Rfam assigns this 92-nucleotide sequence from Callithrix jacchus to the family "mir-3940 microRNA precursor family". A search with the family's covariance model found it, with a score of 84 bits.
RNA sequence: GAGGAGAAGAUCGAGGUGGGCUGGGGAGGGCUCUGGGGGCUUGGGCUCACAGCCCGGAUCCCAGCCCACUCAUCUUGGCCACUCUCCUUCCC
Number, nucleotide and partner (000 for none) at each position: 001g000002a000003g091004g090005a089006g088007a000008a085009g084010a083011u078012c077013g076014a075015g074016g073017u072018g067019g066020g065021c064022u063023g062024g061025g060026g059027a000028g055029g054030g053031c052032u051033c000034u049035g048036g047037g046038g000039g000040c000041u000042u000043g000044g000045g000046c037047u036048c035049a034050c000051a032052g031053c030054c029055c028056g000057g000058a000059u026060c025061c024062c023063a022064g021065c020066c019067c018068a000069c000070u000071c000072a017073u016074c015075u014076u013077g012078g011079c000080c000081a000082c000083u010084c009085u008086c000087c000088u006089u005090c004091c003092c000